[Rfam]
RNA sequence: AAAACUUCACACCUUCUGUUUCGUAUAACCUUAAAGUUAUGGUUUAAGGGUCUCUACUAAGGAACCGAUAAUUCCUGGCUACGGAAUAUGCGCGCCGCAUA
Numbered sequence: 001a002a003a004a005c006u007u008c009a010c011a012c013c014u015u016c017u018g019u020u021u022c023g024u025a026u027a028a029c030c031u032u033a034a035a036g037u038u039a040u041g042g043u044u045u046a047a048g049g050g051u052c053u054c055u056a057c058u059a060a061g062g063a064a065c066c067g068a069u070a071a072u073u074c075c076u077g078g079c080u081a082c083g084g085a086a087u088a089u090g091c092g093c094g095c096c097g098c099a100u101a
Base pairs, nucleotide, nucleotide: 018087019086020085021084022083023082024081025080029049030048031047032046033045034044035043060076061075062074063073064072

A member of the RNA family "Purine riboswitch aptamer" from Terrilactibacillus tamarindi, 101 nucleotides long. The source organism's lineage runs through Bacteria, Bacillota, Bacilli, Bacillaceae and Terrilactibacillus. The base pairs follow the family's consensus structure, which is taken from published work.